mir-9229 microRNA precursor family: a 76-nucleotide RNA from Cnephaeus nilssonii. The family has 7 seed sequences and 27,225 matches in Rfam 15.1. A search with the family's covariance model found it, with a score of 79 bits. Rfam links the family to the GO terms RISC complex and miRNA-mediated post-transcriptional gene silencing.
RNA sequence: GAGACACCCUUAUGAGACAAGACUUGCUUCAGAGUGGCUUUGGUGCUCACUGAGUCUGCCCCCUGAGUGUGUCCCU
Numbered sequence: 001g002a003g004a005c006a007c008c009c010u011u012a013u014g015a016g017a018c019a020a021g022a023c024u025u026g027c028u029u030c031a032g033a034g035u036g037g038c039u040u041u042g043g044u045g046c047u048c049a050c051u052g053a054g055u056c057u058g059c060c061c062c063c064u065g066a067g068u069g070u071g072u073c074c075c076u
Stems, first nucleotide, its partner, number of pairs: 001075001003073005009067004014062001016060001018058002021056003029053004034048001036046001037044002